[Rfam]
RNA: Photosynthesis regulatory RNA1
RNA sequence: GAAAUACUGACAUCGGUUUUCUAUCUUUUAUUGACAUUUGAUCUUCUCCCAACUACCUCAGCUGUACAGCUGAGGUUUUU
Dot-bracket structure: ......................................................((((((((......))))))))....